[Rfam]
RNA sequence: AUGGGGACAUGGCAUAAAGCCGGGAGGAGACUCUUAACUAGGUUCUCGACUUGAACUGAUGUGCAUCUCAUUUU
Numbered sequence: 001a002u003g004g005g006g007a008c009a010u011g012g013c014a015u016a017a018a019g020c021c022g023g024g025a026g027g028a029g030a031c032u033c034u035u036a037a038c039u040a041g042g043u044u045c046u047c048g049a050c051u052u053g054a055a056c057u058g059a060u061g062u063g064c065a066u067c068u069c070a071u072u073u074u
Stems, first nucleotide, its partner, number of pairs: 004069004010022004023064001025062001